[Rfam]
RNA: mir-153 microRNA precursor family
RNA sequence: UUUCCUGGCAGCUUUUGUGAUUUAGCAAUUGUACUGCGGGCAAAUUGCAUAGUCACAAAAGUGAUCAGGACU
Numbered sequence: 001u002u003u004c005c006u007g008g009c010a011g012c013u014u015u016u017g018u019g020a021u022u023u024a025g026c027a028a029u030u031g032u033a034c035u036g037c038g039g040g041c042a043a044a045u046u047g048c049a050u051a052g053u054c055a056c057a058a059a060a061g062u063g064a065u066c067a068g069g070a071c072u
Stems, first nucleotide, its partner, number of pairs: 003070005009063001011062011025048006